[Rfam]
RNA sequence: AUGCUGCCUAUUAUUCCUGUUCGUAUAUUCCCGGAGAUAAGGUCCGGGGGUCUCUACCAGGAGCCGUAAAUUCCUGACUACGAGCGGUGUGCUUUCGCAU
Numbered sequence: 001a002u003g004c005u006g007c008c009u010a011u012u013a014u015u016c017c018u019g020u021u022c023g024u025a026u027a028u029u030c031c032c033g034g035a036g037a038u039a040a041g042g043u044c045c046g047g048g049g050g051u052c053u054c055u056a057c058c059a060g061g062a063g064c065c066g067u068a069a070a071u072u073c074c075u076g077a078c079u080a081c082g083a084g085c086g087g088u089g090u091g092c093u094u095u096c097g098c099a100u
Stems, first nucleotide, its partner, number of pairs: 018086008029049007058076006
Dot-bracket structure: .................((((((((...(((((((.......)))))))........((((((.......))))))..))))))))..............
The family of this 100-nucleotide sequence from Paenibacillus dendritiformis is "Purine riboswitch aptamer". The source organism's lineage runs through Bacteria, Bacillati, Bacilli, Caryophanales and Paenibacillus dendritiformis. A search with the family's covariance model found it, with a score of 75 bits.